[Rfam]
RNA sequence: CUGGCCCCGGUUCACGUUCCCGUAAACCCGCGUGAGCGACCCGGCGCC
Number, nucleotide and partner (000 for none) at each position: 001c000002u000003g048004g047005c046006c000007c044008c043009g042010g041011u000012u000013c000014a000015c038016g037017u036018u035019c034020c000021c032022g031023u030024a000025a000026a000027c000028c000029c000030g023031c022032g021033u000034g019035a018036g017037c016038g015039a000040c000041c010042c009043g008044g007045c000046g005047c004048c003
The record is a 48-nucleotide RNA sequence from Actinacidiphila yanglinensis, which matches "L31-Actinobacteria ribosomal protein leader" in Rfam. A search with the family's covariance model found it, with a score of 48 bits.